[Rfam]
RNA sequence: AUUUUCGGGUAAUCGCGGCUGCUUUGGCAGCUGAGGAAAGUCCAUGCUCGCACAAGACUGAGAUUGUCUGUAGUGUUCGUGCUUAGCGAAACCAUAAGCUAAGGUACUCUUUACGGAGUAACGGCAGAAAAAAGGGCUAAGGAGCAAUCUAUGCCUGAGUAUUCUUGAAAGUGCCACAGUGACGAAGCAUUUUAGGAAACUAGAAUGGUGGAACGCGGUAAACCCCUCGAGCGAGCAACCCAAACAACGGUAGGGGCACUUCUUCUAAGGAAAUGAACGAUGAAGGAGCCGACUUAGUCGGAGAUAGAUGGUUACCACGCAAGUCAACUUCCCUGAGCUGAUUUGCGUACAGAACAUGGCUUACAGAA
Numbered sequence: 001a002u003u004u005u006c007g008g009g010u011a012a013u014c015g016c017g018g019c020u021g022c023u024u025u026g027g028c029a030g031c032u033g034a035g036g037a038a039a040g041u042c043c044a045u046g047c048u049c050g051c052a053c054a055a056g057a058c059u060g061a062g063a064u065u066g067u068c069u070g071u072a073g074u075g076u077u078c079g080u081g082c083u084u085a086g087c088g089a090a091a092c093c094a095u096a097a098g099c100u101a102a103g104g105u106a107c108u109c110u111u112u113a114c115g116g117a118g119u120a121a122c123g124g125c126a127g128a129a130a131a132a133a134g135g136g137c138u139a140a141g142g143a144g145c146a147a148u149c150u151a152u153g154c155c156u157g158a159g160u161a162u163u164c165u166u167g168a169a170a171g172u173g174c175c176a177c178a179g180u181g182a183c184g185a186a187g188c189a190u191u192u193u194a195g196g197a198a199a200c201u202a203g204a205a206u207g208g209u210g211g212a213a214c215g216c217g218g219u220a221a222a223c224c225c226c227u228c229g230a231g232c233g234a235g236c237a238a239c240c241c242a243a244a245c246a247a248c249g250g251u252a253g254g255g256g257c258a259c260u261u262c263u264u265c266u267a268a269g270g271a272a273a274u275g276a277a278c279g280a281u282g283a284a285g286g287a288g289c290c291g292a293c294u295u296a297g298u299c300g301g302a303g304a305u306a307g308a309u310g311g312u313u314a315c316c317a318c319g320c321a322a323g324u325c326a327a328c329u330u331c332c333c334u335g336a337g338c339u340g341a342u343u344u345g346c347g348u349a350c351a352g353a354a355c356a357u358g359g360c361u362u363a364c365a366g367a368a
Stems, first nucleotide, its partner, number of pairs: 004368003007364001008316007016033006038362003042359005047235005052071003056068003077230003081226001082103006104122001105120006123225002126165004134156004141150003171223002173219003188207008239255003259288007289301005318347009

Bacterial RNase P class B: a 368-nucleotide RNA sequence from Enterococcus pallens.
Ribonuclease P (RNase P) is a ubiquitous endoribonuclease, found in archaea, bacteria and eukarya as well as chloroplasts and mitochondria. Its best characterised activity is the generation of mature 5'-ends of tRNAs by cleaving the 5'-leader elements of precursor-tRNAs.
The base pairs follow the family's consensus structure, which is taken from published work.
NCBI's taxonomy places the organism under Bacteria, Bacillati, Lactobacillales, Enterococcus, Enterococcus pallens.